[Rfam]
RNA: Small nucleolar RNA SNORA40
RNA sequence: AGCACUUGUGUUUGCUUUUGCUUAAUUUGUGGGCAAAGACUACAUACAGGUACAGAAAAUAAAUCCUCUUUUGCAACCCAGAACUCAUUGUUUGGUAUGAGUUUUGAUACAUACAAGAAGGAACAUG
Dot-bracket structure: .(.((((((.(..(.((((((....(....).)))))).)...).)))))).)..........(.((.(((((.....((((((((((........)))))))))).......))))).)).)....
Numbered sequence: 001a002g003c004a005c006u007u008g009u010g011u012u013u014g015c016u017u018u019u020g021c022u023u024a025a026u027u028u029g030u031g032g033g034c035a036a037a038g039a040c041u042a043c044a045u046a047c048a049g050g051u052a053c054a055g056a057a058a059a060u061a062a063a064u065c066c067u068c069u070u071u072u073g074c075a076a077c078c079c080a081g082a083a084c085u086c087a088u089u090g091u092u093u094g095g096u097a098u099g100a101g102u103u104u105u106g107a108u109a110c111a112u113a114c115a116a117g118a119a120g121g122a123a124c125a126u127g
Stems, first nucleotide, its partner, number of pairs: 002053001004051006011044001014040001016038006026031001064123001066121002069118005079106010